[Rfam]
Nucleotides: 072
Base pairs, nucleotide, nucleotide: 001071002070003069004068005067006066007065010024011023012022013021026042027041028040029039030038048064049063050062051061052060
Number, partner (000 for none) and nucleotide at each position: 001071g002070u003069c004068c005067c006066a007065c008000u009000a010024g011023c012022u013021c014000a015000g016000g017000g018000g019000u020000a021013g022012a023011g024010c025000a026042u027041u028040u029039c030038a031000c032000u033000u034000u035000u036000a037000a038030u039029g040028a041027a042026g043000g044000g045000g046000u047000c048064c049063g050062g051061a052060g053000u054000u055000c056000g057000a058000a059000u060052c061051u062050c063049c064048g065007g066006u067005g068004g069003g070002a071001c072000a